[Rfam]
RNA sequence: GGUUGUAACUCCGGCGAGCUGGAGACGUUUUGGACAGGGGUUCGACUCCCCUCACCUCCACCGAAGCGCGAUUCUGGAUUCCGAUGAAUGCGUUUCGGUGGGGGUGUUCCGGAUUCGACAGGGCGAGCAAAAGCAAGCAGGCAACCCGAGAGGCGACGGACGUAAUCCGCGCAAAACCAUAAACGCCAACGAUGAGCGUUUCGCAGUCGCCGCUUGA
Numbered sequence: 001g002g003u004u005g006u007a008a009c010u011c012c013g014g015c016g017a018g019c020u021g022g023a024g025a026c027g028u029u030u031u032g033g034a035c036a037g038g039g040g041u042u043c044g045a046c047u048c049c050c051c052u053c054a055c056c057u058c059c060a061c062c063g064a065a066g067c068g069c070g071a072u073u074c075u076g077g078a079u080u081c082c083g084a085u086g087a088a089u090g091c092g093u094u095u096c097g098g099u100g101g102g103g104g105u106g107u108u109c110c111g112g113a114u115u116c117g118a119c120a121g122g123g124c125g126a127g128c129a130a131a132a133g134c135a136a137g138c139a140g141g142c143a144a145c146c147c148g149a150g151a152g153g154c155g156a157c158g159g160a161c162g163u164a165a166u167c168c169g170c171g172c173a174a175a176a177c178c179a180u181a182a183a184c185g186c187c188a189a190c191g192a193u194g195a196g197c198g199u200u201u202c203g204c205a206g207u208c209g210c211c212g213c214u215u216g217a
Base pairs, nucleotide, nucleotide: 001146002145003144004143005142016134026125027124028123030121031120032119036052037051038050039049040048053106054105055104056103057102058101059100060099061098062097063096064095065094147162148161
Rfam assigns this 217-nucleotide RNA from a Betaproteobacteria bacterium to the family "permuted transfer-messenger RNA". By type it is a non-coding RNA gene. The source organism's lineage runs through Bacteria, Pseudomonadati, Pseudomonadota and Betaproteobacteria.